[Rfam]
RNA sequence: GGGCAGUGACCGGGGUGUCCGCCGUCCGGCGGGCUGAGAACACACCCGUCGAACCUGUCCAGGUCAUGCUGGCGAAGGGACGUCACGGCGUGGAUGCC
Numbered sequence: 001g002g003g004c005a006g007u008g009a010c011c012g013g014g015g016u017g018u019c020c021g022c023c024g025u026c027c028g029g030c031g032g033g034c035u036g037a038g039a040a041c042a043c044a045c046c047c048g049u050c051g052a053a054c055c056u057g058u059c060c061a062g063g064u065c066a067u068g069c070u071g072g073c074g075a076a077g078g079g080a081c082g083u084c085a086c087g088g089c090g091u092g093g094a095u096g097c098c
Stems, first nucleotide, its partner, number of pairs: 006086005011048004016042001017034005054078003059072004

Description
Rfam assigns this 98-nucleotide sequence from Geodermatophilus dictyosporus to the family "TPP riboswitch aptamer (THI element)". The organism belongs to Geodermatophilus, within Bacteria. The family's consensus secondary structure is taken from published work.